[Rfam]
The record is an 87-nucleotide sequence from Manihot esculenta, which matches "Small nucleolar RNA snoR27" in Rfam. Clan: snR68 clan. The family's consensus secondary structure was predicted with WAR. It is annotated as a C/D-box small nucleolar RNA. The source organism's lineage runs through Eukaryota, Streptophyta, Tracheophyta, Crotonoideae and Manihot. The literature on the family includes a 2001 paper in RNA by Brown et al., "Multiple snoRNA gene clusters from Arabidopsis".
RNA sequence: UCUGGAUCAGUGAUGUUGCUGAUAUUCUGCGUUAUCUAUCUGAAAAUUAUUUGAAUUGAAGAUAACUGUAAUGUGCUGAGAUCCUGA
Numbered sequence: 001u002c003u004g005g006a007u008c009a010g011u012g013a014u015g016u017u018g019c020u021g022a023u024a025u026u027c028u029g030c031g032u033u034a035u036c037u038a039u040c041u042g043a044a045a046a047u048u049a050u051u052u053g054a055a056u057u058g059a060a061g062a063u064a065a066c067u068g069u070a071a072u073g074u075g076c077u078g079a080g081a082u083c084c085u086g087a
Base pairs, nucleotide, nucleotide: 001087002086004084005083006082007081